[Rfam]
RNA sequence: GAGCUGUGAAGAAAAUGGUUUAGCGAUGGAUGGUUGGGUCCAUCGCAUUCAUCUGAUUUCCAGAUGGUAUAGCCACACCCUGAGCUC
Number, nucleotide and partner (000 for none) at each position: 001g087002a086003g085004c084005u000006g000007u000008g000009a000010a000011g000012a000013a000014a000015a000016u000017g000018g000019u000020u000021u000022a000023g000024c000025g000026a000027u000028g000029g000030a000031u000032g000033g000034u000035u000036g000037g000038g000039u000040c000041c000042a000043u000044c000045g000046c000047a000048u000049u000050c000051a000052u000053c000054u000055g000056a000057u000058u000059u000060c000061c000062a000063g000064a000065u000066g000067g000068u000069a000070u000071a000072g000073c000074c000075a000076c000077a000078c000079c000080c000081u000082g000083a000084g004085c003086u002087c001
Rfam assigns this 87-nucleotide RNA sequence from Brassica rapa to the family "small nucleolar RNA snoR114".
The match comes from Rfam's covariance-model search (49 bits).
Rfam 15.1 lists 1,645 matches to the family in 183 species.
The source organism's lineage runs through Eukaryota, Tracheophyta, Pentapetalae, Brassiceae and Brassica.
Pairs were carried over by alignment from the consensus structure, which was predicted with RNAalifold.
By type it is a C/D-box small nucleolar RNA.